Small nucleolar RNA R64/Z200 family: a 96-nucleotide RNA sequence from Populus trichocarpa. Gene Ontology terms of the family: RNA processing and nucleolus. It is one of the family's seed sequences. The family's RNA type in Rfam is C/D-box small nucleolar RNA. The family's consensus secondary structure was predicted with PFOLD.
[Rfam]
RNA sequence: CUUCUGCAGUGAUGAAGUCAUGGAGUAAGAUCCACAUGUCAGACUUCAGAGAUUUUUAAUCGAUGAGAAGAGACUUCCAUAACUUCUGAGCAGAAU
Numbered sequence: 001c002u003u004c005u006g007c008a009g010u011g012a013u014g015a016a017g018u019c020a021u022g023g024a025g026u027a028a029g030a031u032c033c034a035c036a037u038g039u040c041a042g043a044c045u046u047c048a049g050a051g052a053u054u055u056u057u058a059a060u061c062g063a064u065g066a067g068a069a070g071a072g073a074c075u076u077c078c079a080u081a082a083c084u085u086c087u088g089a090g091c092a093g094a095a096u
Base pairs, nucleotide, nucleotide: 002095003094004093005092006091007090051061052060053059054058
Dot-bracket structure: .((((((...........................................((((...))))............................)))))).